[Rfam]
RNA sequence: UCGUGCCUGGCUCCCUGUAUGCCACAAGAAAACAUCGAUUUUUAGUUACAGAAUCGAUCACUAGUGGCGUACAGAGUAGUCAAGCAUGA
Numbered sequence: 001u002c003g004u005g006c007c008u009g010g011c012u013c014c015c016u017g018u019a020u021g022c023c024a025c026a027a028g029a030a031a032a033c034a035u036c037g038a039u040u041u042u043u044a045g046u047u048a049c050a051g052a053a054u055c056g057a058u059c060a061c062u063a064g065u066g067g068c069g070u071a072c073a074g075a076g077u078a079g080u081c082a083a084g085c086a087u088g089a
Base pairs, nucleotide, nucleotide: 001089002088003087004086005085006084008082009081010080011079012078014076016073017072018071019070020069021068022067023066024065027062028061